[Rfam]
RNA sequence: UCAAUAUUUCCAAAGUCAACUCAUAUAUCCCCAUAAUAAGGGUGGGAGUAUCUACCGAGAACCAUAAAUUUUCGACUAUGAGUGAUUAUUAAUAAUGC
Number, nucleotide and partner (000 for none) at each position: 001u000002c000003a000004a000005u000006a000007u000008u000009u000010c000011c000012a000013a000014a000015g000016u000017c000018a000019a083020c082021u081022c080023a079024u078025a077026u000027a000028u000029c000030c046031c045032c044033a043034u042035a000036a000037u000038a000039a000040g000041g000042g034043u033044g032045g031046g030047a000048g000049u000050a000051u000052c000053u000054a000055c000056c074057g073058a072059g071060a070061a069062c000063c000064a000065u000066a000067a000068a000069u061070u060071u059072u058073c057074g056075a000076c000077u025078a024079u023080g022081a021082g020083u019084g000085a000086u000087u000088a000089u000090u000091a000092a000093u000094a000095a000096u000097g000098c000
Source information
Purine riboswitch aptamer: a 98-nucleotide RNA from Clostridium botulinum. The organism belongs to Clostridium botulinum A, within Bacteria. Rfam's curators write: Riboswitches are metabolite binding domains within certain messenger RNAs that serve as precision sensors for their corresponding targets. Allosteric rearrangement of mRNA structure is mediated by ligand binding, and this results in modulation of gene expression. A class of riboswitches that selectively recognises guanine and becomes saturated at concentrations as low as 5 nM. In Bacillus subtilis, this mRNA motif is located on at least five separate transcriptional units that together encode 17 genes that are mostly involved in purine transport and purine nucleotide biosynthesis. It is one of the family's seed sequences. The family's consensus secondary structure is taken from published work.